Source information:
A member of the RNA family "c-di-GMP-I riboswitch aptamer" from Roseisolibacter agri, 94 nucleotides long. The organism belongs to Roseisolibacter, within Bacteria. Pairs were carried over by alignment from the consensus structure, which is taken from published work. It scores 69 bits against the family's covariance model.
RNA sequence: UCGCGACAACGGCAAAGCCGGCGAAAGCCGGCGACGCAAAGCCACGAGGCUACCGCCCACGGGACACCGGGGCCACGCCGGUCGGGUUGCCGCA
Numbered sequence: 001u002c003g004c005g006a007c008a009a010c011g012g013c014a015a016a017g018c019c020g021g022c023g024a025a026a027g028c029c030g031g032c033g034a035c036g037c038a039a040a041g042c043c044a045c046g047a048g049g050c051u052a053c054c055g056c057c058c059a060c061g062g063g064a065c066a067c068c069g070g071g072g073c074c075a076c077g078c079c080g081g082u083c084g085g086g087u088u089g090c091c092g093c094a
Stems, first nucleotide, its partner, number of pairs: 012037002017032006040088004045084003048079003055073004
Dot-bracket structure: ...........((...((((((....))))))...))..((((.((((((....((((...........))))...)))..)))))))......